[Rfam]
The family of this 566-nucleotide RNA is "ROOL RNA".
Rfam's curators put it in the seed alignment.
Rfam's curators write: Firmicutes, Fusobacteria (1 example), Tenericutes (1 example).
The family's RNA type in Rfam is small RNA.
RNA sequence: CCGUUUUGCUUAAAACAUGAUUAUCUCGGUGCAGAUAGGUUUUUCAGCCUUGCCGAGACACGCGAGAAAACGAGAUAGGCAUAAUCGGGAUACCGGGUAUGCUAAUAUCUUUUGCUGUACUGUGAGGUACGGCAGGGAGACGGAAACCGUCAACAAUGCUUGCGUGGUGUAUCAUCAUAGAGAAGCCAAGGGCAGAGGACUUGUGGCUGUGAAUAAUAGACGCCUACGGUGUAGGAAUAAUCCGUUGAAGUUCGCGGAAUGAGAGACCACGGACAAAUCACGGAAAAUCUCAAACUAAGCAGUGUGCCUUGAAGCCGGAGAAAUCCGGAUAUAACACAAGUAACUCGUUAAAGUAGCGGUACGGCACGAUUUCAUUCUAACAAUUGUUGAGCACAACAACAUUCCGAAAGAACCGUGAAAUUUGCGGGUAUCAAUCCCGCGUGUGCUUGAAAGCGGCAAGAAGCCUUAGGGUCGCUCCCAAAGGCUCGGACUUGUCGUCACAGUGGCAGAAUAUGGCUGUAUGUAUGGUGAAUAAAGAGAAAUCUUAAUUAUGUUUUAGUUUUUGG
Numbered sequence: 001c002c003g004u005u006u007u008g009c010u011u012a013a014a015a016c017a018u019g020a021u022u023a024u025c026u027c028g029g030u031g032c033a034g035a036u037a038g039g040u041u042u043u044u045c046a047g048c049c050u051u052g053c054c055g056a057g058a059c060a061c062g063c064g065a066g067a068a069a070a071c072g073a074g075a076u077a078g079g080c081a082u083a084a085u086c087g088g089g090a091u092a093c094c095g096g097g098u099a100u101g102c103u104a105a106u107a108u109c110u111u112u113u114g115c116u117g118u119a120c121u122g123u124g125a126g127g128u129a130c131g132g133c134a135g136g137g138a139g140a141c142g143g144a145a146a147c148c149g150u151c152a153a154c155a156a157u158g159c160u161u162g163c164g165u166g167g168u169g170u171a172u173c174a175u176c177a178u179a180g181a182g183a184a185g186c187c188a189a190g191g192g193c194a195g196a197g198g199a200c201u202u203g204u205g206g207c208u209g210u211g212a213a214u215a216a217u218a219g220a221c222g223c224c225u226a227c228g229g230u231g232u233a234g235g236a237a238u239a240a241u242c243c244g245u246u247g248a249a250g251u252u253c254g255c256g257g258a259a260u261g262a263g264a265g266a267c268c269a270c271g272g273a274c275a276a277a278u279c280a281c282g283g284a285a286a287a288u289c290u291c292a293a294a295c296u297a298a299g300c301a302g303u304g305u306g307c308c309u310u311g312a313a314g315c316c317g318g319a320g321a322a323a324u325c326c327g328g329a330u331a332u333a334a335c336a337c338a339a340g341u342a343a344c345u346c347g348u349u350a351a352a353g354u355a356g357c358g359g360u361a362c363g364g365c366a367c368g369a370u371u372u373c374a375u376u377c378u379a380a381c382a383a384u385u386g387u388u389g390a391g392c393a394c395a396a397c398a399a400c401a402u403u404c405c406g407a408a409a410g411a412a413c414c415g416u417g418a419a420a421u422u423u424g425c426g427g428g429u430a431u432c433a434a435u436c437c438c439g440c441g442u443g444u445g446c447u448u449g450a451a452a453g454c455g456g457c458a459a460g461a462a463g464c465c466u467u468a469g470g471g472u473c474g475c476u477c478c479c480a481a482a483g484g485c486u487c488g489g490a491c492u493u494g495u496c497g498u499c500a501c502a503g504u505g506g507c508a509g510a511a512u513a514u515g516g517c518u519g520u521a522u523g524u525a526u527g528g529u530g531a532a533u534a535a536a537g538a539g540a541a542a543u544c545u546u547a548a549u550u551a552u553g554u555u556u557u558a559g560u561u562u563u564u565g566g
Stems, first nucleotide, its partner, number of pairs: 008562001011559001013557003020550001022548001025057005037050005059166006073110005079102005085096004111136011139151005172547001176528001180524001185518001187516001191514001195346003199341007206303005223235004241284005251273004256268002261291004304367005315328005350421001356416005403490004427438002442502003453499001456496001459493002463486001465483003469479003535546004
Dot-bracket structure: .......(..(.(((....(.(..(((((.......(((((....)))))..))))).((((((........(((((.(((((.((((....)))).)))))...)))))(((((((((((....)))))))))))..(((((...))))).........)))))).....(...(...(....(.(...(...(((.((((((((((((............((((.....)))).....(((((.....((((.((...[[[[..)).))))......)))))...]]]].......)))))[[[[[......(((((....)))))......)))))))..)))...(.....(((((..]]]]]...................................[[[[.....)))))....).....((........))...(((........(..(..((..(.(((.(((.....))).)))..)]]]].))..)..))))...........).).).....)...)......((((....)))))).)....))).)..)....